The family of this 68-nucleotide RNA from Flavisolibacter tropicus is "Fluoride riboswitch aptamer (crcB RNA motif)".
A search with the family's covariance model found it, with a score of 49 bits.
The organism belongs to Flavisolibacter, within Bacteria.
On this family, see Baker et al., Science 2012: "Widespread genetic switches and toxicity resistance proteins for fluoride".
RNA sequence: CUAUAUACAGGAAAUGGUGUCUUCCUGCCCCAACCGCUUCUUCUAAAGCUAAUGGCGCCUACAAGUAG
Numbered sequence: 001c002u003a004u005a006u007a008c009a010g011g012a013a014a015u016g017g018u019g020u021c022u023u024c025c026u027g028c029c030c031c032a033a034c035c036g037c038u039u040c041u042u043c044u045a046a047a048g049c050u051a052a053u054g055g056c057g058c059c060u061a062c063a064a065g066u067a068g
Base pairs, nucleotide, nucleotide: 010025011024012023013022016059017058018057019056020055021054036049037048038047039046